[Rfam]
RNA: c-di-GMP-I riboswitch aptamer
Organism: Clostridium grantii
RNA sequence: AAAAGUGAAAAGCAAAUUUGUCGAAAGAUAAAGACGCAAAACCACAGGUCUAACUAUAGUAUUCUAUAUAUGACGGCUGGGUUGCCUAA
Numbered sequence: 001a002a003a004a005g006u007g008a009a010a011a012g013c014a015a016a017u018u019u020g021u022c023g024a025a026a027g028a029u030a031a032a033g034a035c036g037c038a039a040a041a042c043c044a045c046a047g048g049u050c051u052a053a054c055u056a057u058a059g060u061a062u063u064c065u066a067u068a069u070a071u072g073a074c075g076g077c078u079g080g081g082u083u084g085c086c087u088a089a
Base pairs, nucleotide, nucleotide: 012037013036017032018031019030020029021028022027040083041082042081043080045079046078047077048074049073050072055068056067057066058065